[Rfam]
Overview: This 151-nucleotide sequence from Oscillatoriaceae cyanobacterium M33_DOE_052 belongs to the Rfam family "c-di-AMP riboswitch aptamer (ydaO/yuaA leader)". The base pairs follow the family's consensus structure. Lineage of the source: Bacteria > Bacillati > Cyanophyceae > Oscillatoriophycideae > Oscillatoriaceae.
RNA sequence: AAAUCCAGUCAGCCUAAUCAGCGCCAGACCAAAGGCGCAGAGUGGAGGAACCAAAACAAUUCCGGGGCGUAUCUCCAGGGGGAAAACAGGAGAUGGGCAUCUUCCAGCCCUAGCCCGUCAGCUAACUCCGCAGGCAUUGGGAAGAGACUGA
Numbered sequence: 001a002a003a004u005c006c007a008g009u010c011a012g013c014c015u016a017a018u019c020a021g022c023g024c025c026a027g028a029c030c031a032a033a034g035g036c037g038c039a040g041a042g043u044g045g046a047g048g049a050a051c052c053a054a055a056a057c058a059a060u061u062c063c064g065g066g067g068c069g070u071a072u073c074u075c076c077a078g079g080g081g082g083a084a085a086a087c088a089g090g091a092g093a094u095g096g097g098c099a100u101c102u103u104c105c106a107g108c109c110c111u112a113g114c115c116c117g118u119c120a121g122c123u124a125a126c127u128c129c130g131c132a133g134g135c136a137u138u139g140g141g142a143a144g145a146g147a148c149u150g151a
Stems, first nucleotide, its partner, number of pairs: 012135003018041002042131006052064001065116003073092004095110004